[Rfam]
RNA: MIR5272 microRNA precursor family
Organism: Medicago truncatula
RNA sequence: UUUAAUAUAAAUUGAUUUAUGUUUGGAUAUACUCACUUAAAAGUGAUUCUUAUGAGUUGAUGUUGUUUGGAUAG
Numbered sequence: 001u002u003u004a005a006u007a008u009a010a011a012u013u014g015a016u017u018u019a020u021g022u023u024u025g026g027a028u029a030u031a032c033u034c035a036c037u038u039a040a041a042a043g044u045g046a047u048u049c050u051u052a053u054g055a056g057u058u059g060a061u062g063u064u065g066u067u068u069g070g071a072u073a074g
Stems, first nucleotide, its partner, number of pairs: 011061008021053002025049004030045004